A member of the RNA family "DUF3800-V RNA", 99 nucleotides long. The family's RNA type in Rfam is small RNA. The base pairs follow the family's consensus structure, which is taken from published work. The sequence is in the family's curated seed alignment.
RNA sequence: AGACAUAGAGCGGUAAGACCGCUGUGGGUUGUCCAUGGUGUUCCCUUCCGGAGGUUGGCAAAGCCGUGGCGAACCAAGCCCACAGGGCACGCUCUUUUU
Numbered sequence: 001a002g003a004c005a006u007a008g009a010g011c012g013g014u015a016a017g018a019c020c021g022c023u024g025u026g027g028g029u030u031g032u033c034c035a036u037g038g039u040g041u042u043c044c045c046u047u048c049c050g051g052a053g054g055u056u057g058g059c060a061a062a063g064c065c066g067u068g069g070c071g072a073a074c075c076a077a078g079c080c081c082a083c084a085g086g087g088c089a090c091g092c093u094c095u096u097u098u099u
Stems, first nucleotide, its partner, number of pairs: 001099003005095001010092002025082006032076001033069007044058002048054002
Dot-bracket structure: (((.(....((.............((((((.((((((((....((..((...))..))....)))))))......)))))))........))..).)))